Source information:
Shown here is a 240-nucleotide RNA sequence from Amborella trichopoda, a member of the family "MIR8562 microRNA precursor family". The source organism's lineage runs through Eukaryota, Viridiplantae, Streptophyta, Tracheophyta and Amborella. The family's consensus secondary structure was predicted with RNAalifold. Gene Ontology terms of the family: miRNA-mediated post-transcriptional gene silencing and RISC complex. The match comes from Rfam's covariance-model search (212 bits).
[Rfam]
RNA sequence: UUUUCUACAAAUCGAAAUGGGCUGAAAUUUGGAGCGUGUGUUCAUAAAAAAUAAGCGAAUUUACUAAAAAUAUCAAAAACAUAUUUUACAUGAAAUAAAUUGACCAAAAUACACCCGAAAUGUUUUAGGGGUAUUUUGAUCAAUUUGUUUUCAUGAAUUAUGUUUUUAUAUUUUUAUUAGGUGCGUCUCACUAAGAUGUACACACGUUCCAAAUUUCAGAUCAUUCUGAUUUGUAGAAAG
Numbered sequence: 001u002u003u004u005c006u007a008c009a010a011a012u013c014g015a016a017a018u019g020g021g022c023u024g025a026a027a028u029u030u031g032g033a034g035c036g037u038g039u040g041u042u043c044a045u046a047a048a049a050a051a052u053a054a055g056c057g058a059a060u061u062u063a064c065u066a067a068a069a070a071u072a073u074c075a076a077a078a079a080c081a082u083a084u085u086u087u088a089c090a091u092g093a094a095a096u097a098a099a100u101u102g103a104c105c106a107a108a109a110u111a112c113a114c115c116c117g118a119a120a121u122g123u124u125u126u127a128g129g130g131g132u133a134u135u136u137u138g139a140u141c142a143a144u145u146u147g148u149u150u151u152c153a154u155g156a157a158u159u160a161u162g163u164u165u166u167u168a169u170a171u172u173u174u175u176a177u178u179a180g181g182u183g184c185g186u187c188u189c190a191c192u193a194a195g196a197u198g199u200a201c202a203c204a205c206g207u208u209c210c211a212a213a214u215u216u217c218a219g220a221u222c223a224u225u226c227u228g229a230u231u232u233g234u235a236g237a238a239a240g
Base pairs, nucleotide, nucleotide: 001240002239003238004237005236006235007234008233009232010231011230012229013228014227016225017224018223019222020221022219023218024217025216026215027214028213029212030211031210032209033208034207036205037204038203039202040201041200043198044197045196061180062179063178066175067174068173069172070171071170072169073168075167076166077165078164079163080162096147097146098145099144100143101142102141103140105138106137107136108135109134110133111132112131114129117124118123